Rfam assigns this 95-nucleotide RNA from Weissella oryzae to the family "Purine riboswitch aptamer". A search with the family's covariance model found it, with a score of 44 bits. Riboswitches are metabolite binding domains within certain messenger RNAs that serve as precision sensors for their corresponding targets. Lineage of the source: Bacteria > Bacillati > Lactobacillales > Weissella > Weissella oryzae.
RNA sequence: GCAUAAUAUAAACAGUUUCGUGAUAUAUAUCCGGAGAAUGGCCGGACGUUUCUACCCCAGACCGAUUUGGGACUAUCGCCAAAACCACACAACCA
Numbered sequence: 001g002c003a004u005a006a007u008a009u010a011a012a013c014a015g016u017u018u019c020g021u022g023a024u025a026u027a028u029a030u031c032c033g034g035a036g037a038a039u040g041g042c043c044g045g046a047c048g049u050u051u052c053u054a055c056c057c058c059a060g061a062c063c064g065a066u067u068u069g070g071g072a073c074u075a076u077c078g079c080c081a082a083a084a085c086c087a088c089a090c091a092a093c094c095a
Stems, first nucleotide, its partner, number of pairs: 018081001020079006030046005056071006